[Rfam]
RNA sequence: GGCGAUAAAUGGUCAGUGAAAUAAACCUAUCGGACCCGGGGGCGGUACCCGGCGCCUCCACCCAAGCGCAUUGAAUUGCAAGGCCUUGCAAACAGUGCGUUUCGGCGGGGGCGAAAUAGGAUCGACGAGGGCGUAAAGACUGUGCUUUUGCUCGGUAUUGUACCACCGUUAUCGGGCUACUUUUGUAGUUGCAAAUGACAACUAUGCUAUGGACAACGCUGUCGCUGCGUAA
Numbered sequence: 001g002g003c004g005a006u007a008a009a010u011g012g013u014c015a016g017u018g019a020a021a022u023a024a025a026c027c028u029a030u031c032g033g034a035c036c037c038g039g040g041g042g043c044g045g046u047a048c049c050c051g052g053c054g055c056c057u058c059c060a061c062c063c064a065a066g067c068g069c070a071u072u073g074a075a076u077u078g079c080a081a082g083g084c085c086u087u088g089c090a091a092a093c094a095g096u097g098c099g100u101u102u103c104g105g106c107g108g109g110g111g112c113g114a115a116a117u118a119g120g121a122u123c124g125a126c127g128a129g130g131g132c133g134u135a136a137a138g139a140c141u142g143u144g145c146u147u148u149u150g151c152u153c154g155g156u157a158u159u160g161u162a163c164c165a166c167c168g169u170u171a172u173c174g175g176g177c178u179a180c181u182u183u184u185g186u187a188g189u190u191g192c193a194a195a196u197g198a199c200a201a202c203u204a205u206g207c208u209a210u211g212g213a214c215a216a217c218g219c220u221g222u223c224g225c226u227g228c229g230u231a232a
Stems, first nucleotide, its partner, number of pairs: 001152005014142004026131003030128003036052005053113007153168004
Dot-bracket structure: (((((........((((........(((.(((...(((((.......)))))(((((((...............................................)))))))............)))))).......)))).....)))))((((........))))................................................................
A member of the RNA family "permuted transfer-messenger RNA" from Roseibium limicola, 232 nucleotides long. By type it is a non-coding RNA gene. On this family, see Williams, Nucleic Acids Res 2002: "The tmRNA Website: invasion by an intron". The family's consensus secondary structure is taken from published work.